[Rfam]
RNA sequence: UCUGUCAAGAAGAAACAGCCGUUUCUCACCUUUCGACGAAAGUUAGUAAGGUUAAGUAUAGAGUAUUACACUAGUGUGAUAAUAAAGGGCGGCUAAUGUCGUCCUUUUAUUUUUUUUAUA
Numbered sequence: 001u002c003u004g005u006c007a008a009g010a011a012g013a014a015a016c017a018g019c020c021g022u023u024u025c026u027c028a029c030c031u032u033u034c035g036a037c038g039a040a041a042g043u044u045a046g047u048a049a050g051g052u053u054a055a056g057u058a059u060a061g062a063g064u065a066u067u068a069c070a071c072u073a074g075u076g077u078g079a080u081a082a083u084a085a086a087g088g089g090c091g092g093c094u095a096a097u098g099u100c101g102u103c104c105u106u107u108u109a110u111u112u113u114u115u116u117u118a119u120a
Stems, first nucleotide, its partner, number of pairs: 011026006028052003034046001036043002084107010
Dot-bracket structure: ..........((((((....)))))).(((...(.((....))..)...)))...............................((((((((((....)))))))))).............
Notes
Ribosomal protein L20 leader: a 120-nucleotide RNA from Clostridium tarantellae. Pairs were carried over by alignment from the consensus structure, which was predicted with CMfinder. This family is a putative r-protein leader autoregulatory structure found in B. subtilis and other low-GC Gram-positive bacteria.